The family of this 164-nucleotide RNA from Emergencia timonensis is "Lysine riboswitch aptamer". For this family Rfam cites "Riboswitches Control Fundamental Biochemical Pathways in Bacillus subtilis and Other Bacteria" (Mandal et al., Cell, 2003). Pairs were carried over by alignment from the consensus structure, which is taken from published work. NCBI's taxonomy places the organism under Bacteria, Bacillati, Clostridia, Peptostreptococcales, Emergencia.
RNA sequence: UAUUAUGAUAGAGGUGCGGAGCAGAAGAAGGUGUGCGAGCCGGCAGGCAGCGACCACACUGGAGGCAAUCUCCGCCGAACUACAGAUGGAAGGCACGCCUCUGUGGUGGGUCCAUGGUCAACAGCCAUGGGACUGUCUACGAAAGUAGUUGCGCUAUCUGAACU
Number, nucleotide and partner (000 for none) at each position: 001u000002a000003u000004u000005a000006u000007g158008a157009u156010a155011g154012a000013g000014g000015u000016g075017c074018g073019g072020a071021g070022c000023a000024g066025a000026a000027g000028a000029a000030g060031g059032u058033g057034u056035g055036c000037g000038a000039g000040c000041c000042g000043g000044c000045a000046g000047g000048c000049a000050g000051c000052g000053a000054c000055c035056a034057c033058a032059c031060u030061g000062g000063a000064g000065g000066c024067a000068a000069u000070c021071u020072c019073c018074g017075c016076c000077g000078a000079a107080c106081u105082a104083c103084a102085g101086a100087u000088g098089g000090a000091a000092g000093g000094c000095a000096c000097g000098c088099c000100u086101c085102u084103g083104u082105g081106g080107u079108g134109g133110g000111u131112c130113c129114a128115u127116g126117g125118u124119c000120a000121a000122c000123a000124g118125c117126c116127a115128u114129g113130g112131g111132a000133c109134u108135g000136u000137c148138u147139a146140c145141g000142a000143a000144a000145g140146u139147a138148g137149u000150u000151g000152c000153g000154c011155u010156a009157u008158c007159u000160g000161a000162a000163c000164u000